[Rfam]
RNA sequence: CCGCUUGACGAUGAGGACCUGGUCUCUUAUAUAUUGACCGGGUUAGAUGAGACUUUUGAUUCGAUUGUCUCUUCUCUAGUUGCACGAGUUGAGGCAGUCACAGUUGGUGAAGUUUACUCACAAUUACUGCAUUUUGAGA
Numbered sequence: 001c002c003g004c005u006u007g008a009c010g011a012u013g014a015g016g017a018c019c020u021g022g023u024c025u026c027u028u029a030u031a032u033a034u035u036g037a038c039c040g041g042g043u044u045a046g047a048u049g050a051g052a053c054u055u056u057u058g059a060u061u062c063g064a065u066u067g068u069c070u071c072u073u074c075u076c077u078a079g080u081u082g083c084a085c086g087a088g089u090u091g092a093g094g095c096a097g098u099c100a101c102a103g104u105u106g107g108u109g110a111a112g113u114u115u116a117c118u119c120a121c122a123a124u125u126a127c128u129g130c131a132u133u134u135u136g137a138g139a
Stems, first nucleotide, its partner, number of pairs: 004138005088108005
Small nucleolar RNA Z247: a 139-nucleotide RNA sequence from Zizania palustris. NCBI's taxonomy places the organism under Eukaryota, Spermatophyta, commelinids, Poales, Zizania. The base pairs follow the family's consensus structure, which was predicted with PFOLD. Gene Ontology terms of the family: RNA processing and nucleolus.